Small nucleolar RNA snoR2/U65: a 151-nucleotide RNA from Panicum miliaceum. Rfam links the family to the GO terms nucleolus and RNA processing. By type it is an H/ACA-box small nucleolar RNA. The literature on the family includes a 1998 paper in J Cell Sci by Shaw et al., "Localization and processing from a polycistronic precursor of novel snoRNAs in maize". Clan: SNORA65 clan.
RNA sequence: GGCCUGAUGCCACGUCAACGGUAGCUUUGAGCAUUAACCGGAGGUGCUAUGAUUAGGCCUAAAAGGAGUUGUUUCAAUGUUUCACAUGUUGAUAGGAACCUGGGGACGGCCACUCUAUCUGUCCACAGAGCCGGUUUCUGUGAUUACAUUU
Numbered sequence: 001g002g003c004c005u006g007a008u009g010c011c012a013c014g015u016c017a018a019c020g021g022u023a024g025c026u027u028u029g030a031g032c033a034u035u036a037a038c039c040g041g042a043g044g045u046g047c048u049a050u051g052a053u054u055a056g057g058c059c060u061a062a063a064a065g066g067a068g069u070u071g072u073u074u075c076a077a078u079g080u081u082u083c084a085c086a087u088g089u090u091g092a093u094a095g096g097a098a099c100c101u102g103g104g105g106a107c108g109g110c111c112a113c114u115c116u117a118u119c120u121g122u123c124c125a126c127a128g129a130g131c132c133g134g135u136u137u138c139u140g141u142g143a144u145u146a147c148a149u150u151u
Stems, first nucleotide, its partner, number of pairs: 002058007009050001013046004020039003024032003082143005095132002100128003104124005